This 100-nucleotide RNA from Halogeometricum borinquense belongs to the Rfam family "L4-Archaeoglobi ribosomal protein leades". It is one of the family's seed sequences. The literature on the family includes a 2020 paper in BMC Microbiol by Eckert and Weinberg, "Discovery of 20 novel ribosomal leader candidates in bacteria and archaea".
RNA sequence: CUGACGGCCGCGUUCGGGUCAAUUGCGGAAUGCAACACCCGAUCUCCCUCUACACGCCAUCGGAUAUGAUGGUGAAAGAGGGGGAGCGCGUCGCCAUCAG
Number, nucleotide and partner (000 for none) at each position: 001c100002u099003g098004a097005c000006g000007g000008c000009c090010g089011c088012g087013u086014u000015c041016g040017g039018g038019u000020c000021a000022a000023u035024u034025g033026c032027g031028g000029a000030a000031u027032g026033c025034a024035a023036c000037a000038c018039c017040c016041g015042a000043u085044c084045u083046c082047c081048c080049u079050c078051u077052a000053c000054a000055c000056g000057c000058c000059a000060u000061c000062g000063g000064a000065u000066a000067u000068g000069a000070u000071g000072g000073u000074g000075a000076a000077a051078g050079a049080g048081g047082g046083g045084g044085a043086g013087c012088g011089c010090g009091u000092c000093g000094c000095c000096a000097u004098c003099a002100g001

The base pairs follow the family's consensus structure, which is taken from published work.